[Rfam]
RNA sequence: CGGUGAUGUCUACUAACCAUUAUCAAUGGAGGCACUCGAUCACACUGUGGGUAUAUGUGAGUACCUUAGACGCCGGUCGUCAAUGGUGGGAUGUGAGGAUGGGUUUGAUGCCCA
Numbered sequence: 001c002g003g004u005g006a007u008g009u010c011u012a013c014u015a016a017c018c019a020u021u022a023u024c025a026a027u028g029g030a031g032g033c034a035c036u037c038g039a040u041c042a043c044a045c046u047g048u049g050g051g052u053a054u055a056u057g058u059g060a061g062u063a064c065c066u067u068a069g070a071c072g073c074c075g076g077u078c079g080u081c082a083a084u085g086g087u088g089g090g091a092u093g094u095g096a097g098g099a100u101g102g103g104u105u106u107g108a109u110g111c112c113c114a
Stems, first nucleotide, its partner, number of pairs: 002018003007034005013028001035097004039092003043088004049066006069081004100114005